The family of this 61-nucleotide RNA sequence from Protea cynaroides is "Plastid-psbA-4 3UTR RNA".
RNA sequence: UAAAUGAAGGAGCAAUACUGUAUUUCUUGUUUUAUCAAGAGGGUUGGUAUUGCUCCUUCAA
Number, nucleotide and partner (000 for none) at each position: 001u000002a000003a000004a000005u000006g059007a058008a057009g056010g055011a054012g053013c052014a051015a050016u049017a048018c000019u000020g000021u000022a000023u000024u041025u040026c039027u038028u037029g036030u000031u000032u000033u000034a000035u000036c029037a028038a027039g026040a025041g024042g000043g000044u000045u000046g000047g000048u017049a016050u015051u014052g013053c012054u011055c010056c009057u008058u007059c006060a000061a000
By type it is a cis-regulatory element. The family's consensus secondary structure was predicted with LocARNA. Lineage of the source: Eukaryota > Streptophytina > Embryophyta > Tracheophyta > Protea. Plastid psbA-4 is a non-coding RNA (ncRNA) present in plastids. It was identified in inverted repeat sequences in the 3 prime untranslate region (3UTR) of photosystem II quinone-binding protein (psbA).